[Rfam]
RNA sequence: AUGCCUUAAGCUAUUGAGUAAAGACAAUUACGGUCAAGGGUGACGCCCGGGUUCCUGCAGCUUUGUGCGAGAGGAAUUUUUAAGUGGGGUAAAGGUCGCCCUGCAGAUGACCUGCCUACUUACUGGGAUGCUGCAGUGCAGUGAUCUGCCUG
Numbered sequence: 001a002u003g004c005c006u007u008a009a010g011c012u013a014u015u016g017a018g019u020a021a022a023g024a025c026a027a028u029u030a031c032g033g034u035c036a037a038g039g040g041u042g043a044c045g046c047c048c049g050g051g052u053u054c055c056u057g058c059a060g061c062u063u064u065g066u067g068c069g070a071g072a073g074g075a076a077u078u079u080u081u082a083a084g085u086g087g088g089g090u091a092a093a094g095g096u097c098g099c100c101c102u103g104c105a106g107a108u109g110a111c112c113u114g115c116c117u118a119c120u121u122a123c124u125g126g127g128a129u130g131c132u133g134c135a136g137u138g139c140a141g142u143g144a145u146c147u148g149c150c151u152g
Stems, first nucleotide, its partner, number of pairs: 004023001006021003032053004038047002054071001056069003085152003089149002093147007101136002104133003111127004
Dot-bracket structure: ...(.(((..........))).)........((((..((......))..))))(.(((........))).).............(((.((..(((((((.((.(((....((((.........))))...))).))....))))))))))))